[Rfam]
RNA sequence: ACGGGGGCCGCGCGGCCCCCGGCCCGACCCCGGUACCUCAUACGGCCGGGGCGG
Numbered sequence: 001a002c003g004g005g006g007g008c009c010g011c012g013c014g015g016c017c018c019c020c021g022g023c024c025c026g027a028c029c030c031c032g033g034u035a036c037c038u039c040a041u042a043c044g045g046c047c048g049g050g051g052c053g054g
Stems, first nucleotide, its partner, number of pairs: 002021008024054003028051007

L17-Actino-Proteobacteria ribosomal protein leader: a 54-nucleotide RNA from Streptosporangium becharense. By type it is a cis-regulatory leader. The organism belongs to Streptosporangium, within Bacteria. A reference for the family is Eckert and Weinberg (2020), "Discovery of 20 novel ribosomal leader candidates in bacteria and archaea", BMC Microbiol.